[Rfam]
RNA sequence: AGCCUGCAGCGCUGGGUGGAAGACUAGUGAUUUUGUUGUGAUACUGAACAAAAAGACCAACAACAAAACCCAGUCUGCCUCUCAGUGCCGGGUA
Numbered sequence: 001a002g003c004c005u006g007c008a009g010c011g012c013u014g015g016g017u018g019g020a021a022g023a024c025u026a027g028u029g030a031u032u033u034u035g036u037u038g039u040g041a042u043a044c045u046g047a048a049c050a051a052a053a054a055g056a057c058c059a060a061c062a063a064c065a066a067a068a069c070c071c072a073g074u075c076u077g078c079c080u081c082u083c084a085g086u087g088c089c090g091g092g093u094a
Stems, first nucleotide, its partner, number of pairs: 002093005009088002012085005018079002021076005027071001029069001031067003035064005
Dot-bracket structure: .(((((..((.(((((.((.(((((.(.(.(((.(((((....................)))))))).).)))))).)).))))).))))))).
RNA: mir-7 microRNA precursor family